Vault RNA: a 92-nucleotide RNA from Capitella teleta. The base pairs follow the family's consensus structure, which is taken from published work. It is annotated as a non-coding RNA gene.

RNA sequence: GUGUUGGCUUAGUCGUGUGGAUACUUCGUUUCUCGCAUAGAAAUCCUUGCUGUUGAUUGCCGCAACGUCCACUGACGCCAUCCAACACAUUU
Numbered sequence: 001g002u003g004u005u006g007g008c009u010u011a012g013u014c015g016u017g018u019g020g021a022u023a024c025u026u027c028g029u030u031u032c033u034c035g036c037a038u039a040g041a042a043a044u045c046c047u048u049g050c051u052g053u054u055g056a057u058u059g060c061c062g063c064a065a066c067g068u069c070c071a072c073u074g075a076c077g078c079c080a081u082c083c084a085a086c087a088c089a090u091u092u
Stems, first nucleotide, its partner, number of pairs: 002087006012076004017072004025064001027062002
The organism belongs to Capitella, within Eukaryota. On this family, see Stadler et al., Mol Biol Evol 2009: "Evolution of Vault RNAs". A search with the family's covariance model found it, with a score of 41 bits.